[Rfam]
RNA sequence: AUUAAUUAUCAAGAAUCUCAAAAGAGGAGAUAGCAACCUGCAAUAACAAGCAAGGUGCUCAAGAGAUAGGCCAAUCCGUUGGAACAAAUGUUACCCCA
Numbered sequence: 001a002u003u004a005a006u007u008a009u010c011a012a013g014a015a016u017c018u019c020a021a022a023a024g025a026g027g028a029g030a031u032a033g034c035a036a037c038c039u040g041c042a043a044u045a046a047c048a049a050g051c052a053a054g055g056u057g058c059u060c061a062a063g064a065g066a067u068a069g070g071c072c073a074a075u076c077c078g079u080u081g082g083a084a085c086a087a088a089u090g091u092u093a094c095c096c097c098a
Base pairs, nucleotide, nucleotide: 006069007068008067009066010065015031016030017029018028019027032059033058034057037055038054039053040051041050046092071082072081073080074079
RNA: SAM-I/IV (S-adenosyl methionine) riboswitch aptamer
Organism: Pseudozobellia thermophila